[Rfam]
RNA: mir-153 microRNA precursor family
RNA sequence: GCCGGUGUCAUUUUUGUGAUUUGCAGCUUGUGUGUGUCAGCUCAGUUGCAUAGUCACAAAAGUGAUCACCGUU
Numbered sequence: 001g002c003c004g005g006u007g008u009c010a011u012u013u014u015u016g017u018g019a020u021u022u023g024c025a026g027c028u029u030g031u032g033u034g035u036g037u038c039a040g041c042u043c044a045g046u047u048g049c050a051u052a053g054u055c056a057c058a059a060a061a062g063u064g065a066u067c068a069c070c071g072u073u
Stems, first nucleotide, its partner, number of pairs: 003071005008065013022050007